[Rfam]
RNA: Eukaryotic large subunit ribosomal RNA, nucleotides 3180 to 3577
Organism: Paracyclopina nana
RNA sequence: GACUCGUCGUUGCGAUAGUAAUCCUGUUCAGUACGAGAGGAACCGCAGGUUCGGACAUUUGGUACACGUACUCGGCCGAUCGGCCGGUGGUGCGAAGCUACCAUCCGUGGGAUUAUGCCUGAACGCCUCUAAGGCAGAAUCCCGUCUAGUCAUGGCAACGAUACCGUUGGGCCUCCGUUUUUGCUCGGGGAAGGAUAGUCUUCGGACUCCAUCCCGAUCUGGGGAACUUUGCUGCCCGGCCCAAAGCGCUGGGUAGCUCUCCUCUUCAUCCACUUGGCAGAGUGGAGGUCCCAAAUCGUCUGUAGACGACUUAUGUGCCGGCCGGGGUGUCGUACUUGGUAGAGCAGCUACCAUACUGCGAUCUAUUGAGACUCAGCCCUUUUGACUGGAAGAUUUGU
Dot-bracket structure: .....((((((((..(((..(.(((((.................))))).)((((....(((....(((((((((((....))))))..)))))...)))...)))).(((....(((((...........)))))....)))..)))......))))))))........(((((((.........................................................................................................)))))))...(((((((..(.......)..))....(((.(((((.((......(((.(..((((........))))..)))).....))....)))...)).)))...)))))..